[Rfam]
RNA sequence: CCCAGUGUCAUUUUUGUGGUUUGCAGCUAGUACUCUGGCUCCAGUUGCAUAGUCACAAAAAUGAGCGUUGGC
Numbered sequence: 001c002c003c004a005g006u007g008u009c010a011u012u013u014u015u016g017u018g019g020u021u022u023g024c025a026g027c028u029a030g031u032a033c034u035c036u037g038g039c040u041c042c043a044g045u046u047g048c049a050u051a052g053u054c055a056c057a058a059a060a061a062u063g064a065g066c067g068u069u070g071g072c
Stems, first nucleotide, its partner, number of pairs: 002071006008064013022049007
RNA: mir-153 microRNA precursor family
Organism: Sphaeramia orbicularis